[Rfam]
RNA sequence: CAGCCGGGACGACCCGGCGCUUGACCCUGGGCAAUCUGACCGGGACGACCCGG
Numbered sequence: 001c002a003g004c005c006g007g008g009a010c011g012a013c014c015c016g017g018c019g020c021u022u023g024a025c026c027c028u029g030g031g032c033a034a035u036c037u038g039a040c041c042g043g044g045a046c047g048a049c050c051c052g053g
Stems, first nucleotide, its partner, number of pairs: 003018006040053005